[Rfam]
RNA sequence: GUUGCCGCGCCCUCUAGUUCGCUUGGUGCAGGUCGGGAACUUAAUUCGCCGAUUGCCUGUGAAUUUUGCGGUGAAUUUGAGCUCUCUGCGUGUGCGUGGUGAAAAAACAUUUGAUUGCCACUCAAUUUGGCGAAAAUCAUGUUCCUGCCUUGCAUCAACUGAAUCGGAGGCCGCGGUGAAU
Numbered sequence: 001g002u003u004g005c006c007g008c009g010c011c012c013u014c015u016a017g018u019u020c021g022c023u024u025g026g027u028g029c030a031g032g033u034c035g036g037g038a039a040c041u042u043a044a045u046u047c048g049c050c051g052a053u054u055g056c057c058u059g060u061g062a063a064u065u066u067u068g069c070g071g072u073g074a075a076u077u078u079g080a081g082c083u084c085u086c087u088g089c090g091u092g093u094g095c096g097u098g099g100u101g102a103a104a105a106a107a108c109a110u111u112u113g114a115u116u117g118c119c120a121c122u123c124a125a126u127u128u129g130g131c132g133a134a135a136a137u138c139a140u141g142u143u144c145c146u147g148c149c150u151u152g153c154a155u156c157a158a159c160u161g162a163a164u165c166g167g168a169g170g171c172c173g174c175g176g177u178g179a180a181u
Stems, first nucleotide, its partner, number of pairs: 013168002017164004023158010034147005040141001
Dot-bracket structure: ............((..((((..((((((((((.(((((.(....................................................................................................).))))).))))))))))..))))..)).............
RNA: MIR168 microRNA precursor family
Organism: Salvia splendens